The family of this 432-nucleotide part of an RNA from Smittium mucronatum is "Eukaryotic large subunit ribosomal RNA".
[Rfam]
RNA sequence: UGAACUCAAAUCAGGCAAGAGUACCCGCUGAAUUUAAGCAUAUUAAUAAGCGGAGGAAAAGAAACUAACAAGGAUUCCCCUAGUAACGGCGAGUGAAGCGGGAACAGCUCAAGCUUAAAAUCUACAUUUUGUAAAAAGAAUGUCGAGUUGUAGCUUUUGGAGGCACUAUUGAGUGGCUAAUCUUGGUAAAAGUUCUUUUGAAUAAGGCAUCAAAGAGGGUGAAAAUCCCGUAUUUGACCAGGAAUUAAUUAGUUGCGAUAUCAAGUGUUUUCUUUGAGUCGGGUUGUUUGGGAAUGCAGCCCUAAUUGGGAGGUAAAUUUCUUCCAAAGCUAAAUAUCAGCAAGAGACCGAUAGCAUACAAGUACCGUGAGGGAAAGAUGAAAAGCACUUUGAAAAGAGAGUGAAAAGUACGUGAAAUUGUUGGAAGGGAAC
Numbered sequence: 001u002g003a004a005c006u007c008a009a010a011u012c013a014g015g016c017a018a019g020a021g022u023a024c025c026c027g028c029u030g031a032a033u034u035u036a037a038g039c040a041u042a043u044u045a046a047u048a049a050g051c052g053g054a055g056g057a058a059a060a061g062a063a064a065c066u067a068a069c070a071a072g073g074a075u076u077c078c079c080c081u082a083g084u085a086a087c088g089g090c091g092a093g094u095g096a097a098g099c100g101g102g103a104a105c106a107g108c109u110c111a112a113g114c115u116u117a118a119a120a121u122c123u124a125c126a127u128u129u130u131g132u133a134a135a136a137a138g139a140a141u142g143u144c145g146a147g148u149u150g151u152a153g154c155u156u157u158u159g160g161a162g163g164c165a166c167u168a169u170u171g172a173g174u175g176g177c178u179a180a181u182c183u184u185g186g187u188a189a190a191a192g193u194u195c196u197u198u199u200g201a202a203u204a205a206g207g208c209a210u211c212a213a214a215g216a217g218g219g220u221g222a223a224a225a226u227c228c229c230g231u232a233u234u235u236g237a238c239c240a241g242g243a244a245u246u247a248a249u250u251a252g253u254u255g256c257g258a259u260a261u262c263a264a265g266u267g268u269u270u271u272c273u274u275u276g277a278g279u280c281g282g283g284u285u286g287u288u289u290g291g292g293a294a295u296g297c298a299g300c301c302c303u304a305a306u307u308g309g310g311a312g313g314u315a316a317a318u319u320u321c322u323u324c325c326a327a328a329g330c331u332a333a334a335u336a337u338c339a340g341c342a343a344g345a346g347a348c349c350g351a352u353a354g355c356a357u358a359c360a361a362g363u364a365c366c367g368u369g370a371g372g373g374a375a376a377g378a379u380g381a382a383a384a385g386c387a388c389u390u391u392g393a394a395a396a397g398a399g400a401g402u403g404a405a406a407a408g409u410a411c412g413u414g415a416a417a418u419u420g421u422u423g424g425a426a427g428g429g430a431a432c
Stems, first nucleotide, its partner, number of pairs: 024055001025053005035042002065072002076103004086094002106331004112155004118149002121146002124143006160272002162269004169264003173256007182242006192208001194207004211215001218228002281302007308325005365372002388399004